[Rfam]
RNA sequence: UAGUUAUCAAGAAAGGUGGAGGGAAUAGACCCUAUGAAACCUUAGCAACCCUUUAUUCGUAAAGAAGGUGCUAAAUUCUAUCCGAUUUUCAUUUUUGAUUUUAGGAAUAGAUAACUC
Numbered sequence: 001u002a003g004u005u006a007u008c009a010a011g012a013a014a015g016g017u018g019g020a021g022g023g024a025a026u027a028g029a030c031c032c033u034a035u036g037a038a039a040c041c042u043u044a045g046c047a048a049c050c051c052u053u054u055a056u057u058c059g060u061a062a063a064g065a066a067g068g069u070g071c072u073a074a075a076u077u078c079u080a081u082c083c084g085a086u087u088u089u090c091a092u093u094u095u096u097g098a099u100u101u102u103a104g105g106a107a108u109a110g111a112u113a114a115c116u117c
Stems, first nucleotide, its partner, number of pairs: 002116007013043005021032003026080004044072004049068002051064004076109001081106003085102001
A member of the RNA family "SAM riboswitch aptamer (S box leader)" from Aquimarina sp. MMG016, 117 nucleotides long. The SAM riboswitch is found upstream of a number of genes which code for proteins involved in methionine or cysteine biosynthesis in Gram-positive bacteria. Pairs were carried over by alignment from the consensus structure, which is taken from published work. The organism belongs to Aquimarina, within Bacteria.